[Rfam]
Nucleotides: 082
Stems, first nucleotide, its partner, number of pairs: 001082006
Number, partner (000 for none) and nucleotide at each position: 001082g002081g003080u004079c005078c006077c007000a008000a009000u010000g011000a012000a013000g014000a015000a016000u017000g018000a019000u020000g021000u022000u023000u024000a025000u026000a027000u028000a029000g030000a031000a032000u033000a034000a035000a036000a037000g038000u039000a040000g041000u042000g043000g044000g045000c046000u047000g048000a049000u050000u051000u052000c053000c054000g055000c056000u057000g058000a059000u060000g061000a062000c063000u064000a065000a066000a067000c068000c069000a070000a071000u072000u073000c074000u075000g076000a077006g078005g079004g080003a081002u082001u
Rfam assigns this 82-nucleotide sequence from Jatropha curcas to the family "Small nucleolar RNA R21". Its family is annotated with RNA processing and nucleolus in the Gene Ontology. The source organism's lineage runs through Eukaryota, Viridiplantae, Streptophyta, Streptophytina and Jatropha.